The family of this 58-nucleotide RNA from Calothrix sp. C42_A2020_038 is "Nitrogen stress-induced RNA 1". A search with the family's covariance model found it, with a score of 50 bits. The organism belongs to Calothrix, within Bacteria.
RNA sequence: UGGUAGAUGCACCCUGAUAAAUCAAGCCCCAACCGUUUUUCGGUUAGGGUUUUUUAUU
Numbered sequence: 001u002g003g004u005a006g007a008u009g010c011a012c013c014c015u016g017a018u019a020a021a022u023c024a025a026g027c028c029c030c031a032a033c034c035g036u037u038u039u040u041c042g043g044u045u046a047g048g049g050u051u052u053u054u055u056a057u058u
Stems, first nucleotide, its partner, number of pairs: 002013003026050004031045005